[Rfam]
RNA: Xanthomonadaceae sRNA asX1
Organism: Stenotrophomonas terrae
RNA sequence: CACCCAACGUGGCAUGCGACAUAGGCGCAACAAGGUCGGAAUUGGAACAGGGGCCGACCGAAGCGUACGUUGGGGUAGCAGGGGGCCGGUAGUCGGGGGACUACCGGCCUUGCAAUC
Dot-bracket structure: ..(((((((((((.((((.......))))....((((((..((......))..))))))...)).))))))))).......(((((((((((((....)))))))))))))......